[Rfam]
RNA: RAGATH-18 RNA
RNA sequence: CUUGUGGACUGUUGUACAAAUGGGAGUAGAUUUUAUAAUUGAUGAUAUAAAAACAAAACCAGACAGGAAGAAGCAAGAA
Number, nucleotide and partner (000 for none) at each position: 001c077002u076003u075004g074005u073006g000007g000008a000009c066010u065011g064012u063013u062014g000015u000016a000017c000018a000019a000020a000021u061022g060023g059024g000025a000026g000027u000028a000029g054030a000031u052032u051033u050034u049035a048036u047037a046038a000039u000040u000041g000042a000043u000044g000045a000046u037047a036048u035049a034050a033051a032052a031053a000054c029055a000056a000057a000058a000059c023060c022061a021062g013063a012064c011065a010066g009067g000068a000069a000070g000071a000072a000073g005074c004075a003076a002077g001078a000079a000